[Rfam]
Record summary:
The record is a 114-nucleotide RNA from Attibartonella tamiae, which matches "Alphaproteobacterial ar14" in Rfam. Smr14C2 was renamed NfeR1 (Nodule Formation Efficiency RNA) highly expressed in salt stress and during the symbiotic interaction on legume roots. Rfam classes the family as a small RNA.

RNA sequence: UUCGUCACCGGGAUACUCCUCCCAAGCCCGGUAUAUGAGUGCAGCAAUUCCUCCUCCCAACGCUGCAUUCGGAAUUAAAGGGCUGCGCACCUCCUCCCGCGCAGCCUUUUUUCU
Numbered sequence: 001u002u003c004g005u006c007a008c009c010g011g012g013a014u015a016c017u018c019c020u021c022c023c024a025a026g027c028c029c030g031g032u033a034u035a036u037g038a039g040u041g042c043a044g045c046a047a048u049u050c051c052u053c054c055u056c057c058c059a060a061c062g063c064u065g066c067a068u069u070c071g072g073a074a075u076u077a078a079a080g081g082g083c084u085g086c087g088c089a090c091c092u093c094c095u096c097c098c099g100c101g102c103a104g105c106c107u108u109u110u111u112u113c114u
Stems, first nucleotide, its partner, number of pairs: 008031005014025001037070009078109011

Taxonomically the source falls in Attibartonella tamiae (Bacteria, Pseudomonadati, Alphaproteobacteria, Bartonellaceae).